[Rfam]
RNA: mir-9193 microRNA precursor family
Organism: Myotis davidii
RNA sequence: CAUGCACUAGUGGGGUCCCUAGGCCUGGCCUGCGAGGGGUCCCAGAUUGCAAGAGGGCACAGGCCAGGCCGAGGGACCCCACCAGUGCACA
Numbered sequence: 001c002a003u004g005c006a007c008u009a010g011u012g013g014g015g016u017c018c019c020u021a022g023g024c025c026u027g028g029c030c031u032g033c034g035a036g037g038g039g040u041c042c043c044a045g046a047u048u049g050c051a052a053g054a055g056g057g058c059a060c061a062g063g064c065c066a067g068g069c070c071g072a073g074g075g076a077c078c079c080c081a082c083c084a085g086u087g088c089a090c091a
Stems, first nucleotide, its partner, number of pairs: 003089002006086001008084001010082001012080009022070004027065006034058001